Shown here is a 77-nucleotide sequence from Bicyclus anynana, a member of the family "let-7 microRNA precursor family". Lineage of the source: Eukaryota > Eumetazoa > Bilateria > Neoptera > Bicyclus. Rfam 15.1 lists 8,694 matches to the family in 797 species. The base pairs follow the family's consensus structure, which was predicted with RNAalifold. Its family is annotated with miRNA-mediated post-transcriptional gene silencing and RISC complex in the Gene Ontology.

[Rfam]
RNA sequence: GCGGGGUGAGGUAGUAGGUUGUAUAGUACUGCAUUACACCACUGAGGAGAGACUGUAUAGCCUGCUAACUUUCCCGG
Number, nucleotide and partner (000 for none) at each position: 001g000002c076003g075004g074005g073006g072007u000008g071009a070010g069011g000012u067013a066014g065015u064016a063017g062018g061019u060020u059021g058022u057023a056024u055025a054026g053027u052028a000029c000030u000031g000032c000033a000034u000035u000036a000037c000038a000039c000040c000041a000042c049043u048044g000045a000046g000047g000048a043049g042050a000051g000052a027053c026054u025055g024056u023057a022058u021059a020060g019061c018062c017063u016064g015065c014066u013067a012068a000069c010070u009071u008072u006073c005074c004075c003076g002077g000